[Rfam]
RNA sequence: CAAUCGGCCCUUUUCAGGGCCAACACAUGUAUACUAAAGAGUUAAUU
Numbered sequence: 001c002a003a004u005c006g007g008c009c010c011u012u013u014u015c016a017g018g019g020c021c022a023a024c025a026c027a028u029g030u031a032u033a034c035u036a037a038a039g040a041g042u043u044a045a046u047u
Stems, first nucleotide, its partner, number of pairs: 006021006
Shown here is a 47-nucleotide sequence from Aedes aegypti, a member of the family "Histone 3' UTR stem-loop". By type it is a cis-regulatory element. Lineage of the source: Eukaryota > Opisthokonta > Insecta > Aedes > Stegomyia. A search with the family's covariance model found it, with a score of 36 bits. Its family is annotated with mRNA 3'-end processing by stem-loop binding and cleavage in the Gene Ontology.